[Rfam]
RNA sequence: UGGGAAACUGAUACAAGGGCAGUGUUAAGCAGUACUCUACCCUUCACAAGUUUUCCCUAUAUCAAACCUGCUCUCUGAUGACCGGUGCGAGUUGAGAGAAAUCGCCACGGACAGAUACGGGGCAGACAUAC
Numbered sequence: 001u002g003g004g005a006a007a008c009u010g011a012u013a014c015a016a017g018g019g020c021a022g023u024g025u026u027a028a029g030c031a032g033u034a035c036u037c038u039a040c041c042c043u044u045c046a047c048a049a050g051u052u053u054u055c056c057c058u059a060u061a062u063c064a065a066a067c068c069u070g071c072u073c074u075c076u077g078a079u080g081a082c083c084g085g086u087g088c089g090a091g092u093u094g095a096g097a098g099a100a101a102u103c104g105c106c107a108c109g110g111a112c113a114g115a116u117a118c119g120g121g122g123c124a125g126a127c128a129u130a131c
Stems, first nucleotide, its partner, number of pairs: 002057006015044004022037001024035002068125007082110003087105004
Shown here is a 131-nucleotide RNA, a member of the family "Small Cajal body specific RNA 8". It is one of the family's seed sequences. scaRNAs are a specific class of small nuclear RNAs which localise to the Cajal bodies and guide the modification of RNA polymerase II transcribed spliceosomal RNAs U1, U2, U4, U5 and U12. The family's consensus secondary structure is taken from published work. The family's RNA type in Rfam is small Cajal body RNA.